[Rfam]
RNA sequence: GUUGCACUACGACGUUGGUGACUGCCUACAAGUUUUUUGAUCUAUGCCUUUAAUGACAAGGGAGCCAAAAAUUUCUCGUGGCAGUAUACCGGGCAUGUACCCGGAAACUUUAAACGAGAUACAUCAGUUCCCACCUGGUUUAACCAGGUCAUAAACUUCGGCAAGACGGCGUCGCGGUGAACUC
Numbered sequence: 001g002u003u004g005c006a007c008u009a010c011g012a013c014g015u016u017g018g019u020g021a022c023u024g025c026c027u028a029c030a031a032g033u034u035u036u037u038u039g040a041u042c043u044a045u046g047c048c049u050u051u052a053a054u055g056a057c058a059a060g061g062g063a064g065c066c067a068a069a070a071a072u073u074u075c076u077c078g079u080g081g082c083a084g085u086a087u088a089c090c091g092g093g094c095a096u097g098u099a100c101c102c103g104g105a106a107a108c109u110u111u112a113a114a115c116g117a118g119a120u121a122c123a124u125c126a127g128u129u130c131c132c133a134c135c136u137g138g139u140u141u142a143a144c145c146a147g148g149u150c151a152u153a154a155a156c157u158u159c160g161g162c163a164a165g166a167c168g169g170c171g172u173c174g175c176g177g178u179g180a181a182c183u184c
Stems, first nucleotide, its partner, number of pairs: 003181001005179004010174006018167002034155003038151006060132003064128002068124001074119006084108002089104005
RNA: 6S / SsrS RNA